[Rfam]
RNA sequence: AAUUGCCAUAAUGGCUGUAGCAGAAGUGCUCACAUCAUGGCCGUGUCAGAUUCAAAUGAAUCUGUGAAUUCUGCU
Numbered sequence: 001a002a003u004u005g006c007c008a009u010a011a012u013g014g015c016u017g018u019a020g021c022a023g024a025a026g027u028g029c030u031c032a033c034a035u036c037a038u039g040g041c042c043g044u045g046u047c048a049g050a051u052u053c054a055a056a057u058g059a060a061u062c063u064g065u066g067a068a069u070u071c072u073g074c075u
Base pairs, nucleotide, nucleotide: 012043013042014041015040016039019075020074021073022072023071024070025069026038027037028036047064048063049062050061051060052059053058
This 75-nucleotide RNA sequence from Alligator mississippiensis belongs to the Rfam family "Mammalian CPEB3 ribozyme". The mammalian CPEB3 ribozyme is a self cleaving RNA located in the second intron of the CPEB3 gene which belongs to a family of genes regulating messenger RNA polyadenylation.